Shown here is a 115-nucleotide RNA sequence from Novosphingobium nitrogenifigens, a member of the family "Glycine riboswitch aptamer".

Nucleotides: 115
Base pairs, nucleotide, nucleotide: 006110007109008108009107010106011105012104013103020059021058022057061094062093063092064090065089068088069087070086074082075081
Number, partner (000 for none) and nucleotide at each position: 001000a002000c003000u004000g005000a006110u007109c008108g009107c010106g011105c012104g013103g014000g015000a016000g017000a018000g019000a020059u021058c022057c023000u024000g025000c026000g027000a028000u029000u030000c031000g032000c033000g034000a035000u036000g037000g038000g039000u040000c041000a042000a043000a044000c045000c046000a047000u048000c049000g050000c051000g052000g053000c054000g055000a056000c057022g058021g059020a060000c061094g062093c063092c064090g065089a066000a067000g068088g069087a070086g071000c072000a073000a074082c075081c076000g077000c078000c079000c080000c081075g082074g083000a084000a085000a086070c087069u088068c089065u090064c091000a092063g093062g094061c095000a096000c097000c098000a099000g100000g101000g102000a103013c104012u105011g106010c107009g108008u109007g110006g111000a112000u113000c114000a115000a
A reference for the family is Babina et al. (2017), "In Vivo Behavior of the Tandem Glycine Riboswitch in Bacillus subtilis", MBio.
From the family's description: This family represents the bacterial glycine riboswitch.
Lineage of the source: Bacteria > Alphaproteobacteria > Sphingomonadales > Sphingomonadaceae > Novosphingobium nitrogenifigens.